[Rfam]
Rfam assigns this 171-nucleotide RNA sequence from Halonatronomonas betaini to the family "M-box riboswitch aptamer (ykoK leader)". A search with the family's covariance model found it, with a score of 124 bits. The source organism's lineage runs through Bacteria, Bacillati, Bacillota, Halanaerobiales and Halonatronomonas. Rfam describes the family as follows. M-box riboswitch, also know as ykoK leader is described as a metaloregulatory RNA that sense divalent metals and function as a genetic control element of genes related to divalent metal transport in bacteria.

RNA sequence: AAUAUUGCUCGUUAAGUGAGGCUACUAUUUUGAAUACAGGUUGCUGCCCAAAAACGUCUAGAGACGCCAAUGGGUAUAACAGGCUACUUCGGCGUAAGGAGAGCUUAAAGUAACUGAUAGCAUGAGCUAUCUACGUCUUAUAGUGCUAAACCCUGGACGAGGAGCUUGAAC
Numbered sequence: 001a002a003u004a005u006u007g008c009u010c011g012u013u014a015a016g017u018g019a020g021g022c023u024a025c026u027a028u029u030u031u032g033a034a035u036a037c038a039g040g041u042u043g044c045u046g047c048c049c050a051a052a053a054a055c056g057u058c059u060a061g062a063g064a065c066g067c068c069a070a071u072g073g074g075u076a077u078a079a080c081a082g083g084c085u086a087c088u089u090c091g092g093c094g095u096a097a098g099g100a101g102a103g104c105u106u107a108a109a110g111u112a113a114c115u116g117a118u119a120g121c122a123u124g125a126g127c128u129a130u131c132u133a134c135g136u137c138u139u140a141u142a143g144u145g146c147u148a149a150a151c152c153c154u155g156g157a158c159g160a161g162g163a164g165c166u167u168g169a170a171c
Stems, first nucleotide, its partner, number of pairs: 007165004011158002013097001016152001020147003025143004032137002040114005046075005055066004082105004088100003116131003